Histidine operon leader: a 126-nucleotide RNA from Shimwellia blattae. The family's consensus secondary structure is taken from published work. Taxonomically the source falls in Shimwellia blattae (Bacteria, Pseudomonadati, Pseudomonadota, Enterobacteriaceae). From the family's description: At least 6 amino acid operons are known to be regulated by attenuation. In each a leader sequence of 150-200 bp is found upstream of the first gene in the operon. This leader sequence can assume two different secondary structures known as the terminator and the anti-terminator structure. In each case the leader also codes for very short peptide sequence that is rich in the end product amino acid of the operon. The terminator structure is recognised as a termination signal for RNA polymerase and the operon is not transcribed. This structure forms when the cell has an excess of the regulatory amino acid and ribosome movement over the leader transcript is not impeded. When there is a deficiency of the charged tRNA of the regulatory amino acid the ribosome translating the leader peptide stalls and the antiterminator structure can form. This allows RNA polymerase to transcribe the operon. In the Rfam alignment the consensus structure is of the terminator structure. It is annotated as a cis-regulatory leader.
RNA sequence: CCAUCACCACCAUCAUCCUGACUAGUCUUUCAGGCGAUUGGUGCUGGAAGACAUACAGAUCUUCCAGUGGCGCGAACCAGCUGUUAAUGAGCCCCCGGAAGGUCAACCUUCCGGGGGCUUUUUUAU
Numbered sequence: 001c002c003a004u005c006a007c008c009a010c011c012a013u014c015a016u017c018c019u020g021a022c023u024a025g026u027c028u029u030u031c032a033g034g035c036g037a038u039u040g041g042u043g044c045u046g047g048a049a050g051a052c053a054u055a056c057a058g059a060u061c062u063u064c065c066a067g068u069g070g071c072g073c074g075a076a077c078c079a080g081c082u083g084u085u086a087a088u089g090a091g092c093c094c095c096c097g098g099a100a101g102g103u104c105a106a107c108c109u110u111c112c113g114g115g116g117g118c119u120u121u122u123u124u125a126u
Stems, first nucleotide, its partner, number of pairs: 008043003012038003017034005044067008086123002089120013
Dot-bracket structure: .......(((.(((..(((((........))))).)))..)))((((((((........))))))))..................((.(((((((((((((......))))))))))))).))...